[Rfam]
RNA sequence: CGGCUGUGUGUGAUGACAGCAUAGUUCAGCAGAUGACUCAUGGUGAUCACGCUGUUAACUGUCUUUCGCUCCUAGCUGAUGCAGCCU
Numbered sequence: 001c002g003g004c005u006g007u008g009u010g011u012g013a014u015g016a017c018a019g020c021a022u023a024g025u026u027c028a029g030c031a032g033a034u035g036a037c038u039c040a041u042g043g044u045g046a047u048c049a050c051g052c053u054g055u056u057a058a059c060u061g062u063c064u065u066u067c068g069c070u071c072c073u074a075g076c077u078g079a080u081g082c083a084g085c086c087u
Base pairs, nucleotide, nucleotide: 004084005083006082007081008080
RNA: Small nucleolar RNA snR60/Z15/Z230/Z193/J17
Organism: Strigops habroptila